[Rfam]
RNA sequence: CAGCACUGAUGAAUGGAAGUAUAGUCUGACCUGGUAUUGUUCUCCCCCCGGGGUCGACUCUGACCAGGGCAUGAUCACUGUAAUCUUCUCUCUGAGCGG
Numbered sequence: 001c002a003g004c005a006c007u008g009a010u011g012a013a014u015g016g017a018a019g020u021a022u023a024g025u026c027u028g029a030c031c032u033g034g035u036a037u038u039g040u041u042c043u044c045c046c047c048c049c050g051g052g053g054u055c056g057a058c059u060c061u062g063a064c065c066a067g068g069g070c071a072u073g074a075u076c077a078c079u080g081u082a083a084u085c086u087u088c089u090c091u092c093u094g095a096g097c098g099g
Stems, first nucleotide, its partner, number of pairs: 001098001003097002039058003